[Rfam]
RNA sequence: CCUGAACACGCCAAACCCAUCGUAAGGUGGGGACGGAAAGCCACGGGUCCUGAUAACGCAGGAUCGCCGGGUUGCCUGGU
Number, nucleotide and partner (000 for none) at each position: 001c000002c000003u000004g076005a000006a000007c000008a000009c000010g000011c036012c035013a000014a000015a000016c031017c030018c029019a028020u027021c026022g000023u000024a000025a000026g021027g020028u019029g018030g017031g016032g000033a000034c066035g012036g011037a000038a000039a073040g072041c071042c070043a000044c069045g068046g067047g064048u063049c062050c061051u060052g000053a000054u000055a000056a000057c000058g000059c000060a051061g050062g049063a048064u047065c000066g034067c046068c045069g044070g042071g041072u040073u039074g000075c000076c004077u000078g000079g000080u000
RNA: c-di-GMP-I-GGC riboswitch aptamer
Organism: Candidatus Vecturithrix granuli